[Rfam]
This 304-nucleotide sequence from Camellia sinensis belongs to the Rfam family "Plant signal recognition particle RNA".
RNA sequence: GCCAAGCUAUGUAGCACUAGCUUGUGACUCGAGCGAGGGCAUUAUGGUAGCUGGACAAUGGUUCGAUCCAUUUAGACAGGUUCAGUGAGCUGUGCUUGCUUGCUUGCCCGGUCGAAGUUGGGAGUUGGGUCAUGCAGCCCAAGAGAAGGCUUGGACUUCAUGGCUCGUAGAGUGGAGGGCACAGCGUCAGGCUGGUUUCACAGAGCAGCGAUAACCUCCAGCUCUCGACAGUGGAAGGAUUACAAGUCGGUGCACUCAUGGGCCAUAUUGCCUGGUGACUUGAUUACAUUGAACAGCCACUUUU
Numbered sequence: 001g002c003c004a005a006g007c008u009a010u011g012u013a014g015c016a017c018u019a020g021c022u023u024g025u026g027a028c029u030c031g032a033g034c035g036a037g038g039g040c041a042u043u044a045u046g047g048u049a050g051c052u053g054g055a056c057a058a059u060g061g062u063u064c065g066a067u068c069c070a071u072u073u074a075g076a077c078a079g080g081u082u083c084a085g086u087g088a089g090c091u092g093u094g095c096u097u098g099c100u101u102g103c104u105u106g107c108c109c110g111g112u113c114g115a116a117g118u119u120g121g122g123a124g125u126u127g128g129g130u131c132a133u134g135c136a137g138c139c140c141a142a143g144a145g146a147a148g149g150c151u152u153g154g155a156c157u158u159c160a161u162g163g164c165u166c167g168u169a170g171a172g173u174g175g176a177g178g179g180c181a182c183a184g185c186g187u188c189a190g191g192c193u194g195g196u197u198u199c200a201c202a203g204a205g206c207a208g209c210g211a212u213a214a215c216c217u218c219c220a221g222c223u224c225u226c227g228a229c230a231g232u233g234g235a236a237g238g239a240u241u242a243c244a245a246g247u248c249g250g251u252g253c254a255c256u257c258a259u260g261g262g263c264c265a266u267a268u269u270g271c272c273u274g275g276u277g278a279c280u281u282g283a284u285u286a287c288a289u290u291g292a293a294c295a296g297c298c299a300c301u302u303u304u
Stems, first nucleotide, its partner, number of pairs: 001040003004023006028037003044303001046301003050297004056291002059288002063283004072275004077270002079264006088256001091254004099250002102247005108238002112235002115232001117229009127166008136157002139154005173220006183212001185210003192203003

Rfam links the family to the GO terms signal recognition particle, endoplasmic reticulum targeting and SRP-dependent cotranslational protein targeting to membrane, signal sequence recognition.